[Rfam]
RNA sequence: UGACCACAGAAUAAAUUAUUUUAUGGUCACUUUGAGUUACAAUAAUUAUUAUACUAAUUUACGAGAUUAUGGUAACUCUCUCAUAAGUGAUUUUACUAUAGCAUUAUGGUAAGUAUCAUCUUAAAUUAUAGUAUCACAUGCAUCAUAAAUGUGUAUUGUCAUUAUCGUAAAUUGAUAUAAACAUUAUCAUAAAUCAAUGUGGCUAUAGAAUAAGUUAUUCUGUGGCUA
Number, nucleotide and partner (000 for none) at each position: 001u228002g227003a000004c225005c224006a223007c222008a221009g220010a219011a218012u217013a216014a215015a000016u213017u212018a211019u210020u209021u208022u207023a206024u205025g204026g203027u202028c201029a200030c199031u000032u197033u196034g000035a000036g000037u192038u191039a190040c000041a000042a187043u186044a185045a184046u183047u000048a000049u000050u179051a178052u177053a176054c000055u174056a173057a172058u171059u170060u169061a168062c167063g000064a000065g166066a165067u164068u000069a162070u161071g160072g000073u000074a156075a000076c000077u000078c000079u149080c000081u147082c000083a000084u000085a000086a000087g143088u142089g141090a000091u000092u138093u000094u133095a132096c131097u130098a129099u128100a127101g126102c000103a000104u123105u000106a000107u000108g000109g117110u000111a000112a000113g000114u000115a000116u000117c109118a000119u000120c000121u000122u000123a104124a000125a000126u101127u100128a099129u098130a097131g096132u095133a094134u000135c000136a000137c000138a092139u000140g000141c089142a088143u087144c000145a000146u000147a081148a000149a079150u000151g000152u000153g000154u000155a000156u074157u000158g000159u000160c071161a070162u069163u000164a067165u066166c065167g062168u061169a060170a059171a058172u057173u056174g055175a000176u053177a052178u051179a050180a000181a000182c000183a046184u045185u044186a043187u042188c000189a000190u039191a038192a037193a000194u000195c000196a033197a032198u000199g030200u029201g028202g027203c026204u025205a024206u023207a022208g021209a020210a019211u018212a017213a016214g000215u014216u013217a012218u011219u010220c009221u008222g007223u006224g005225g004226c000227u002228a001
Shown here is a 228-nucleotide RNA sequence from Miscanthus lutarioriparius, a member of the family "MIR6217 microRNA precursor family". Taxonomically the source falls in Miscanthus (Eukaryota, Liliopsida, Panicoideae, Andropogoneae). Rfam links the family to the GO terms RISC complex and miRNA-mediated post-transcriptional gene silencing. Pairs were carried over by alignment from the consensus structure, which was predicted with RNAalifold. It scores 114 bits against the family's covariance model.